[Rfam]
RNA sequence: GGCCAGGAGGAAAGAAACACUAUAUGCUAAAACACCUAGUAUGGGCAAGCAGGGGGCUGGAAAAAUUUGCACCUUACCCUUGCC
Number, nucleotide and partner (000 for none) at each position: 001g084002g083003c082004c000005a080006g079007g078008a000009g000010g000011a000012a000013a000014g000015a000016a000017a000018c000019a000020c000021u000022a000023u000024a000025u000026g000027c000028u000029a000030a000031a000032a000033c000034a000035c000036c000037u000038a000039g000040u000041a000042u000043g000044g000045g000046c000047a000048a000049g000050c000051a000052g000053g000054g000055g000056g000057c000058u000059g000060g000061a000062a000063a000064a000065a000066u000067u000068u000069g000070c000071a000072c000073c000074u000075u000076a000077c000078c007079c006080u005081u000082g003083c002084c001
RNA: HIV gag stem loop 3 (GSL3)